RNA sequence: CCCAUCUGAUCGGGAGAGAGUCGGUCGAGGGAUAGAACCCUGGAUCGAUCGCCGAAGGGGUAGCACCCGCAAACUCUCAGGCAAAAGGACCGAUCGGACCCG
Numbered sequence: 001c002c003c004a005u006c007u008g009a010u011c012g013g014g015a016g017a018g019a020g021u022c023g024g025u026c027g028a029g030g031g032a033u034a035g036a037a038c039c040c041u042g043g044a045u046c047g048a049u050c051g052c053c054g055a056a057g058g059g060g061u062a063g064c065a066c067c068c069g070c071a072a073a074c075u076c077u078c079a080g081g082c083a084a085a086a087g088g089a090c091c092g093a094u095c096g097g098a099c100c101c102g
Stems, first nucleotide, its partner, number of pairs: 006097008020049007051082003054078002058076003064069001
Notes
Glycine riboswitch aptamer: a 102-nucleotide RNA sequence from Usitatibacter rugosus. It scores 59 bits against the family's covariance model.